The family of this 481-nucleotide part of an RNA from Bursaphelenchus xylophilus is "Eukaryotic large subunit ribosomal RNA". Pairs were carried over by alignment from the consensus structure, which is taken from published work. A search with the family's covariance model found it, with a score of 2954 bits. Taxonomically the source falls in Bursaphelenchus (Eukaryota, Bilateria, Protostomia, Nematoda).

RNA sequence: UGUAGUAGCAAAUAUUCAAGUGAGAUCCUUGAAGACUGAAGUGGAGAAGGGUUCCGCGUGCACAGUGAUUGUACGUGGGUUAGCCGAUCCUAAGGCACAGGCUAAUGCUGGAUUUGAAGUUGUGGCGUUAAAUUCACUUGUGGAUUGCGCUGCAUUCGCCGAAAGGGAAGCGGGUUAAUAUUCCCGCGUCGUGACGAGGAGAUUGGCUUCACUUCGGUGUUGUCGAAGCGCGGUAACGCAAAUGAACUUGCCGACGCUGCUUGGAGUCCGGGCUAGAGAUCUCUUUUCUAGUUUAAGCUUUCAUGACCAUGGAAUCGGUUCAUCCGGAGAUAUGGUUGCUGAGGCUGUAGAGCACUGCGGUUGCUGCGGUGUCCCGUGCACUCCAUGUGGCCCUUGAAAAGGUAAGGGAAGCUUAAUGAAUUUCUCGCACGAUCGUACCAAUAUCCGCAGCAGGUCUCCAAGGUGUGCAGCCUCUAGUUGA
Numbered sequence: 001u002g003u004a005g006u007a008g009c010a011a012a013u014a015u016u017c018a019a020g021u022g023a024g025a026u027c028c029u030u031g032a033a034g035a036c037u038g039a040a041g042u043g044g045a046g047a048a049g050g051g052u053u054c055c056g057c058g059u060g061c062a063c064a065g066u067g068a069u070u071g072u073a074c075g076u077g078g079g080u081u082a083g084c085c086g087a088u089c090c091u092a093a094g095g096c097a098c099a100g101g102c103u104a105a106u107g108c109u110g111g112a113u114u115u116g117a118a119g120u121u122g123u124g125g126c127g128u129u130a131a132a133u134u135c136a137c138u139u140g141u142g143g144a145u146u147g148c149g150c151u152g153c154a155u156u157c158g159c160c161g162a163a164a165g166g167g168a169a170g171c172g173g174g175u176u177a178a179u180a181u182u183c184c185c186g187c188g189u190c191g192u193g194a195c196g197a198g199g200a201g202a203u204u205g206g207c208u209u210c211a212c213u214u215c216g217g218u219g220u221u222g223u224c225g226a227a228g229c230g231c232g233g234u235a236a237c238g239c240a241a242a243u244g245a246a247c248u249u250g251c252c253g254a255c256g257c258u259g260c261u262u263g264g265a266g267u268c269c270g271g272g273c274u275a276g277a278g279a280u281c282u283c284u285u286u287u288c289u290a291g292u293u294u295a296a297g298c299u300u301u302c303a304u305g306a307c308c309a310u311g312g313a314a315u316c317g318g319u320u321c322a323u324c325c326g327g328a329g330a331u332a333u334g335g336u337u338g339c340u341g342a343g344g345c346u347g348u349a350g351a352g353c354a355c356u357g358c359g360g361u362u363g364c365u366g367c368g369g370u371g372u373c374c375c376g377u378g379c380a381c382u383c384c385a386u387g388u389g390g391c392c393c394u395u396g397a398a399a400a401g402g403u404a405a406g407g408g409a410a411g412c413u414u415a416a417u418g419a420a421u422u423u424c425u426c427g428c429a430c431g432a433u434c435g436u437a438c439c440a441a442u443a444u445c446c447g448c449a450g451c452a453g454g455u456c457u458c459c460a461a462g463g464u465g466u467g468c469a470g471c472c473u474c475u476a477g478u479u480g481a
Stems, first nucleotide, its partner, number of pairs: 015033006034479004043459004049439002054078006063071002085435003089166002094160002098110001100109003119153002170187005190431004219424001222421001223419002230239003247406006256391004262385006269376003272292006296346005306336006315327004353371007445454002461473004